[Rfam]
RNA sequence: GAGAACUGAAUGCGUGAAUAGUCGAAUGAAGGGGUAACGCCCUGAAAGGCUACUCUAAUACUCCGGCUCGGCAUGGAAAUGAGUAAACAUUGAAAUGUCAGAAACCCGGUGAAGUCGGCAGAGAGAUACCGUAACAAUAGUAGUUUACGAAAGCUUGUCCAAGGUGGAAGGUGUAUCCUAUAUUCCGGGAGUCUAAAAA
Number, nucleotide and partner (000 for none) at each position: 001g000002a000003g000004a000005a000006c000007u000008g000009a000010a000011u000012g000013c000014g000015u000016g000017a000018a000019u052020a051021g050022u049023c048024g000025a000026a000027u000028g000029a000030a000031g043032g042033g041034g040035u000036a000037a000038c000039g000040c034041c033042c032043u031044g000045a000046a000047a000048g023049g022050c021051u020052a019053c191054u190055c189056u188057a000058a000059u000060a000061c000062u000063c109064c108065g107066g106067c101068u100069c000070g099071g098072c097073a096074u000075g000076g000077a000078a091079a090080u000081g000082a000083g000084u000085a000086a000087a000088c000089a000090u079091u078092g000093a000094a000095a000096u073097g072098u071099c070100a068101g067102a000103a000104a000105c000106c066107c065108g064109g063110u000111g000112a000113a000114g000115u000116c187117g186118g185119c000120a183121g000122a000123g000124a000125g177126a176127u175128a174129c173130c149131g148132u147133a000134a000135c000136a145137a144138u000139a000140g000141u000142a000143g000144u137145u136146u000147a132148c131149g130150a000151a000152a000153g172154c171155u170156u169157g000158u167159c166160c000161a000162a000163g000164g000165u000166g159167g158168a000169a156170g155171g154172u153173g129174u128175a127176u126177c125178c000179u000180a000181u000182a000183u120184u000185c118186c117187g116188g056189g055190a054191g053192u000193c000194u000195a000196a000197a000198a000199a000